[Rfam]
RNA sequence: GAAUGUGAGGGUGAUCUGGCUGCGACAUCUGUCACCCCAUUGAUUGCCAGGGUUGAUUCGGCUGAUCUGGCUGGCUAGGUGGUGUCCCCUUCUUCCCUCACUGCUCCAUGUCCAUCUCUCCCAAAACUGCAUGCUCAGUCGAAGAGAAUGACCUUCCCUGAUAGAGGAGAGGACCAUCCUUCGGUCAAGAAUAUAAAAGUAGCUGCGCUCCCAUGCUAGAACCUCCAAACCAGCUCUCAAAAAGAAACAGUCUUUGAUGGUUACGAGGUAGGGGAGGGAUGGGGAUGGAAAAACACUUAAUAGACAAUAGAUAAGUGGACACUUU
Numbered sequence: 001g002a003a004u005g006u007g008a009g010g011g012u013g014a015u016c017u018g019g020c021u022g023c024g025a026c027a028u029c030u031g032u033c034a035c036c037c038c039a040u041u042g043a044u045u046g047c048c049a050g051g052g053u054u055g056a057u058u059c060g061g062c063u064g065a066u067c068u069g070g071c072u073g074g075c076u077a078g079g080u081g082g083u084g085u086c087c088c089c090u091u092c093u094u095c096c097c098u099c100a101c102u103g104c105u106c107c108a109u110g111u112c113c114a115u116c117u118c119u120c121c122c123a124a125a126a127c128u129g130c131a132u133g134c135u136c137a138g139u140c141g142a143a144g145a146g147a148a149u150g151a152c153c154u155u156c157c158c159u160g161a162u163a164g165a166g167g168a169g170a171g172g173a174c175c176a177u178c179c180u181u182c183g184g185u186c187a188a189g190a191a192u193a194u195a196a197a198a199g200u201a202g203c204u205g206c207g208c209u210c211c212c213a214u215g216c217u218a219g220a221a222c223c224u225c226c227a228a229a230c231c232a233g234c235u236c237u238c239a240a241a242a243a244g245a246a247a248c249a250g251u252c253u254u255u256g257a258u259g260g261u262u263a264c265g266a267g268g269u270a271g272g273g274g275a276g277g278g279a280u281g282g283g284g285a286u287g288g289a290a291a292a293a294c295a296c297u298u299a300a301u302a303g304a305c306a307a308u309a310g311a312u313a314a315g316u317g318g319a320c321a322c323u324u325u
Base pairs, nucleotide, nucleotide: 001107003105005101006100007099008098009097010096011095013092014091018089019088024086025085026084027083028082029081031080032079033078035074036073037070038069039068042067043066044065045064046062047061048060115172116171117167118166119165120164121138124135127133139161140160141159146157148155204285208284209283211282212281213280214279216277223274224273225272226271233269234268235267
RNA: 7SK RNA
Organism: Loxodonta africana